[Rfam]
RNA sequence: GAGAUUUGAGGUGGGAACGGCUUCCCCACACACCUCCCUUCAAAAGGGGAGGUAUAGUAGCCCGAAAGGGUGAAGAGAUGCAGGGAUUUAGCACCCUGCCAGCUUUC
Numbered sequence: 001g002a003g004a005u006u007u008g009a010g011g012u013g014g015g016a017a018c019g020g021c022u023u024c025c026c027c028a029c030a031c032a033c034c035u036c037c038c039u040u041c042a043a044a045a046g047g048g049g050a051g052g053u054a055u056a057g058u059a060g061c062c063c064g065a066a067a068g069g070g071u072g073a074a075g076a077g078a079u080g081c082a083g084g085g086a087u088u089u090a091g092c093a094c095c096c097u098g099c100c101a102g103c104u105u106u107c
Stems, first nucleotide, its partner, number of pairs: 001107004006102003011029005020092003031075001032053009080099005
Description: skipping-rope RNA: a 107-nucleotide RNA sequence from Phreatobacter aquaticus. NCBI's taxonomy places the organism under Bacteria, Alphaproteobacteria, Hyphomicrobiales, Phreatobacteraceae, Phreatobacter. It is annotated as a small RNA.